Annotation: Rfam assigns this 119-nucleotide RNA from Hucho hucho to the family "Small nucleolar RNA SNORA17".
RNA sequence: ACUGCCCCUUGAGGCGUUGCAGUCUGACUGUAAGUGUCGAGCCUGUGUCAUGAGGGGCAGAGUGAUUGCAUGUCUACUCCAACAACCCAGAACAGUGGGCGAUUGAAAGCUUCGACAUG
Numbered sequence: 001a002c003u004g005c006c007c008c009u010u011g012a013g014g015c016g017u018u019g020c021a022g023u024c025u026g027a028c029u030g031u032a033a034g035u036g037u038c039g040a041g042c043c044u045g046u047g048u049c050a051u052g053a054g055g056g057g058c059a060g061a062g063u064g065a066u067u068g069c070a071u072g073u074c075u076a077c078u079c080c081a082a083c084a085a086c087c088c089a090g091a092a093c094a095g096u097g098g099g100c101g102a103u104u105g106a107a108a109g110c111u112u113c114g115a116c117a118u119g
Base pairs, nucleotide, nucleotide: 002060003059004058005057006056007055008054009053010052011051013049014048015047019046020045021044022043024041025039026038027037028036069119070118071117072116073115077109078108080105081104082103083101086099087098088097
Rfam 15.1 lists 5,784 matches to the family in 673 species. Its Rfam clan is "SNORA17 clan". The literature on the family includes a 1997 paper in J Mol Biol by Ofengand and Bakin, "Mapping to nucleotide resolution of pseudouridine residues in large subunit ribosomal RNAs from representative eukaryotes, prokaryotes, archaebacteria, mitochondria and chloroplasts". The match comes from Rfam's covariance-model search (43 bits). NCBI's taxonomy places the organism under Eukaryota, Opisthokonta, Protacanthopterygii, Salmonidae, Hucho.